[Rfam]
A member of the RNA family "sRNA-Xcc1" from Stenotrophomonas panacihumi, 83 nucleotides long. The family's consensus secondary structure was predicted with RNAalifold.
RNA sequence: GUCGGGAGGGCGGCUAAUACAAUACCCCUAGGGGAAAUACGCCCGCCGGCUGUUGGCGGUUUCUAGCCUCCCGACACCCCCUU
Numbered sequence: 001g002u003c004g005g006g007a008g009g010g011c012g013g014c015u016a017a018u019a020c021a022a023u024a025c026c027c028c029u030a031g032g033g034g035a036a037a038u039a040c041g042c043c044c045g046c047c048g049g050c051u052g053u054u055g056g057c058g059g060u061u062u063c064u065a066g067c068c069u070c071c072c073g074a075c076a077c078c079c080c081c082u083u
Base pairs, nucleotide, nucleotide: 001075002074003073004072005071006070007069008068009067012043013042014041015039016038025034026033027032045060046059047058048057
Taxonomically the source falls in Stenotrophomonas (Bacteria, Pseudomonadota, Gammaproteobacteria, Lysobacterales). The match comes from Rfam's covariance-model search (77 bits).